RNA sequence: AUACUAUAAUGGCCAUAUUAGAAGCAUUCACAUCAUGGCCCCUGUCAGAUUCGAAUGAAUCUGCUAUUCUGCU
Number, nucleotide and partner (000 for none) at each position: 001a000002u000003a000004c000005u000006a000007u000008a000009a000010u000011g040012g039013c038014c037015a000016u000017a073018u000019u071020a070021g069022a068023a067024g036025c000026a000027u000028u000029c000030a000031c000032a000033u000034c000035a000036u024037g014038g013039c012040c011041c000042c000043u000044g000045u000046c063047a062048g061049a060050u059051u058052c057053g000054a000055a000056u000057g052058a051059a050060u049061c048062u047063g046064c000065u000066a000067u023068u022069c021070u020071g019072c000073u017
Mammalian CPEB3 ribozyme: a 73-nucleotide sequence from Crocodylus porosus. Pairs were carried over by alignment from the consensus structure, which is taken from published work. A search with the family's covariance model found it, with a score of 45 bits. Rfam links the family to the GO term RNA nuclease activity.